[Rfam]
RNA: Actinobacteria sRNA Ms_IGR-5
Organism: Kitasatospora indigofera
RNA sequence: ACACUGAAAGGAGGUGAUCCUGGUUGAGUACCGUCAGGAUGUGUGAGGUGGCUGCUCGCUAGAGCCGCCCCUGCCUGUGCAGUUGAGGUCGUGAACGGCCUCCGGCGGCAGGCGAUUCCCAAGCAGUCACCCGGCCCGUGGGCUCACCGGAACAUCCCCGGUGCCCCGGUGCCAGCAGCCCGGCGCCGGGCUCU
Numbered sequence: 001a002c003a004c005u006g007a008a009a010g011g012a013g014g015u016g017a018u019c020c021u022g023g024u025u026g027a028g029u030a031c032c033g034u035c036a037g038g039a040u041g042u043g044u045g046a047g048g049u050g051g052c053u054g055c056u057c058g059c060u061a062g063a064g065c066c067g068c069c070c071c072u073g074c075c076u077g078u079g080c081a082g083u084u085g086a087g088g089u090c091g092u093g094a095a096c097g098g099c100c101u102c103c104g105g106c107g108g109c110a111g112g113c114g115a116u117u118c119c120c121a122a123g124c125a126g127u128c129a130c131c132c133g134g135c136c137c138g139u140g141g142g143c144u145c146a147c148c149g150g151a152a153c154a155u156c157c158c159c160g161g162u163g164c165c166c167c168g169g170u171g172c173c174a175g176c177a178g179c180c181c182g183g184c185g186c187c188g189g190g191c192u193c194u
Base pairs, nucleotide, nucleotide: 013056014055015054016053018051057114058113059112060111062109065108067106068105069104073099074098132188133187134186135185137183139182140181141180142179143178144177146170147169148168149167150166